[Rfam]
RNA sequence: CUUGCCUAUGAUGAGUUGCAAACGUUAUUGCCUACAUUGUUUGAUCAAUAUUGUGGGAAGCUUAUGCAACAUCUGAGGAUGAG
Numbered sequence: 001c002u003u004g005c006c007u008a009u010g011a012u013g014a015g016u017u018g019c020a021a022a023c024g025u026u027a028u029u030g031c032c033u034a035c036a037u038u039g040u041u042u043g044a045u046c047a048a049u050a051u052u053g054u055g056g057g058a059a060g061c062u063u064a065u066g067c068a069a070c071a072u073c074u075g076a077g078g079a080u081g082a083g
Base pairs, nucleotide, nucleotide: 001083002082004080005078006077